[Rfam]
Nucleotides: 131
Stems, first nucleotide, its partner, number of pairs: 005048003011037002014034004063124008077113007
Number, partner (000 for none) and nucleotide at each position: 001000u002000g003000a004000a005048a006047a007046g008000c009000a010000g011037g012036g013000u014034c015033c016032u017031g018000u019000u020000g021000c022000c023000c024000a025000u026000g027000u028000g029000a030000a031017c032016a033015g034014g035000u036012c037011u038000c039000u040000c041000g042000u043000a044000a045000a046007c047006u048005u049000c050000a051000g052000g053000g054000a055000a056000a057000u058000u059000g060000u061000u062000c063124a064123c065122a066121u067120u068119g069118u070117u071000a072000u073000u074000g075000g076000g077113u078112g079111a080110a081109c082108c083107u084000c085000u086000g087000u088000a089000a090000g091000u092000g093000g094000u095000u096000u097000u098000g099000a100000u101000g102000a103000c104000a105000g106000a107083a108082g109081g110080u111079u112078c113077a114000g115000u116000a117070a118069a119068u120067g121066a122065u123064g124063u125000u126000a127000c128000a129000u130000u131000a

Rfam assigns this 131-nucleotide sequence from Nelumbo nucifera to the family "Small nucleolar RNA snoR74". By type it is an H/ACA-box small nucleolar RNA. A reference for the family is Marker et al. (2002), "Experimental RNomics: identification of 140 candidates for small non-messenger RNAs in the plant Arabidopsis thaliana", Curr Biol.